Overview: The family of this 102-nucleotide RNA is "Purine riboswitch aptamer". Rfam links the family to the GO term purine nucleobase biosynthetic process. Pairs were carried over by alignment from the consensus structure, which is taken from published work.
RNA sequence: UAAUUGAUGAACGAUAAACCUCAUAUAUAAUUGGGAAUAUGGCCCAGAAGUUUCUACCCGAUGACCGUAAAUCACCGGACUAUGAGGGAAAGUCAUGUAUAU
Number, nucleotide and partner (000 for none) at each position: 001u000002a000003a000004u000005u000006g000007a000008u000009g000010a000011a000012c000013g000014a000015u000016a000017a000018a000019c087020c086021u085022c084023a083024u082025a081026u000027a000028u000029a000030a000031u047032u046033g045034g044035g043036a000037a000038u000039a000040u000041g000042g000043c035044c034045c033046a032047g031048a000049a000050g000051u000052u000053u000054c000055u000056a000057c000058c078059c077060g076061a000062u074063g073064a072065c000066c000067g000068u000069a000070a000071a000072u064073c063074a062075c000076c060077g059078g058079a000080c000081u025082a024083u023084g022085a021086g020087g019088g000089a000090a000091a000092g000093u000094c000095a000096u000097g000098u000099a000100u000101a000102u000